[Rfam]
RNA sequence: UGAUGACAUUCUCCGGAAUCGCUGUACUGUCUUGAUGAAAGUACUUUUGAACCCUUUUCCAUCUGACUACGAGCUUUCUCGGC
Numbered sequence: 001u002g003a004u005g006a007c008a009u010u011c012u013c014c015g016g017a018a019u020c021g022c023u024g025u026a027c028u029g030u031c032u033u034g035a036u037g038a039a040a041g042u043a044c045u046u047u048u049g050a051a052c053c054c055u056u057u058u059c060c061a062u063c064u065g066a067c068u069a070c071g072a073g074c075u076u077u078c079u080c081g082g083c
Stems, first nucleotide, its partner, number of pairs: 002083001004081003
RNA: Small nucleolar RNA MBII-202